[Rfam]
RNA sequence: UGGCAAAUGAUGAUGUUUACUUGGAUUCCCCUUCAGAACAUUUUGUGUGUUGCAAACUCCAAGUUCUGAUGCU
Number, nucleotide and partner (000 for none) at each position: 001u000002g073003g072004c071005a070006a000007a000008u000009g000010a000011u000012g000013a000014u000015g000016u000017u000018u000019a000020c000021u000022u000023g000024g000025a000026u000027u000028c000029c000030c000031c000032u000033u000034c000035a000036g000037a000038a000039c000040a000041u000042u000043u000044u000045g000046u000047g000048u000049g000050u000051u000052g000053c000054a000055a000056a000057c000058u000059c000060c000061a000062a000063g000064u000065u000066c000067u000068g000069a000070u005071g004072c003073u002

Notes:
Rfam assigns this 73-nucleotide sequence from Raphanus sativus to the family "Small nucleolar RNA snoR60". The base pairs follow the family's consensus structure, which was predicted with PFOLD. Rfam links the family to the GO terms nucleolus and RNA processing. Its Rfam clan is "SNORD101 clan". On this family, see Barneche et al., J Biol Chem 2000: "Fibrillarin genes encode both a conserved nucleolar protein and a novel small nucleolar RNA involved in ribosomal RNA methylation in Arabidopsis thaliana". NCBI's taxonomy places the organism under Eukaryota, Tracheophyta, Gunneridae, rosids, Raphanus.